[Rfam]
RNA sequence: GUGGGAUACGGUGAUAUCUACCCUAUGACUACGCCGGGUAGAUUAGUAGGCGCUGUGUGUUGUAUUUGUGGUGUGUUAGUUAUUGCGCUCCCGAUUCCUAUCAUCGUUAAUAAU
Numbered sequence: 001g002u003g004g005g006a007u008a009c010g011g012u013g014a015u016a017u018c019u020a021c022c023c024u025a026u027g028a029c030u031a032c033g034c035c036g037g038g039u040a041g042a043u044u045a046g047u048a049g050g051c052g053c054u055g056u057g058u059g060u061u062g063u064a065u066u067u068g069u070g071g072u073g074u075g076u077u078a079g080u081u082a083u084u085g086c087g088c089u090c091c092c093g094a095u096u097c098c099u100a101u102c103a104u105c106g107u108u109a110a111u112a113a114u
Stems, first nucleotide, its partner, number of pairs: 001114002004111001008107004013102004020095001037077004049063001
Dot-bracket structure: ((.(...((((.((((...(................((((........(.............)..........)))).................)...)))).))))...).))
Potassium channel RNA editing signal: a 114-nucleotide RNA sequence from Magallana gigas. NCBI's taxonomy places the organism under Eukaryota, Mollusca, Autobranchia, Ostreoidea, Magallana. The match comes from Rfam's covariance-model search (70 bits). Rfam classes the family as a cis-regulatory element. Gene Ontology term of the family: adenosine to inosine editing.